[Rfam]
Nucleotides: 089
Stems, first nucleotide, its partner, number of pairs: 001089001003087006013043005021032003026077004044069004049065002052061003073081001
Number, partner (000 for none) and nucleotide at each position: 001089c002000a003087u004086c005085c006084a007083u008082c009000c010000c011000g012000a013043g014042c015041g016040a017039c018000u019000g020000a021032g022031a023030g024000g025000c026077c027076u028075g029074g030023c031022u032021c033000g034000c035000c036000g037000a038000a039017g040016u041015c042014g043013c044069a045068g046067c047066a048000a049065c050064c051000a052061c053060c054059c055000g056000a057000g058000a059054g060053g061052g062000c063000a064050g065049g066047u067046g068045c069044u070000a071000a072000c073081g074029c075028c076027a077026g078000g079000a080000c081073c082008g083007a084006u085005g086004g087003a088000g089001g
Shown here is an 89-nucleotide RNA from Amycolatopsis sp. YIM 10, a member of the family "SAM riboswitch aptamer (S box leader)". From the family's description: The SAM riboswitch is found upstream of a number of genes which code for proteins involved in methionine or cysteine biosynthesis in Gram-positive bacteria.